[Rfam]
RNA sequence: UGUCAAGCAUCUUUGGCACCGUUUUGGUGGACGAAUUUCUUUUGCCUUGAAAAAGGUGAAGGUGAUG
Numbered sequence: 001u002g003u004c005a006a007g008c009a010u011c012u013u014u015g016g017c018a019c020c021g022u023u024u025u026g027g028u029g030g031a032c033g034a035a036u037u038u039c040u041u042u043u044g045c046c047u048u049g050a051a052a053a054a055g056g057u058g059a060a061g062g063u064g065a066u067g
Stems, first nucleotide, its partner, number of pairs: 011062004017058004022054004029047001032044004